The record is a 79-nucleotide RNA sequence from Diploscapter pachys, which matches "Small nucleolar RNA SNORD58" in Rfam.
Rfam's curators write: snoRNA U58 is found in introns 1, 3 and 6 of the ribosomal protein RPL17 gene in humans.
A search with the family's covariance model found it, with a score of 46 bits.
The literature on the family includes a 2002 paper in Mol Cell Biol by Galardi et al., "Purified box C/D snoRNPs are able to reproduce site-specific 2'-O-methylation of target RNA in vitro".
Rfam links the family to the GO terms RNA processing and nucleolus.
RNA sequence: GAGCUGUGAUGACAAACUUAGGACACCUUUGGAGGAAGACAAUUCCACUGAAAGGACAAUAUUAGCCUUACUGAGCUCG
Numbered sequence: 001g002a003g004c005u006g007u008g009a010u011g012a013c014a015a016a017c018u019u020a021g022g023a024c025a026c027c028u029u030u031g032g033a034g035g036a037a038g039a040c041a042a043u044u045c046c047a048c049u050g051a052a053a054g055g056a057c058a059a060u061a062u063u064a065g066c067c068u069u070a071c072u073g074a075g076c077u078c079g
Stems, first nucleotide, its partner, number of pairs: 001078004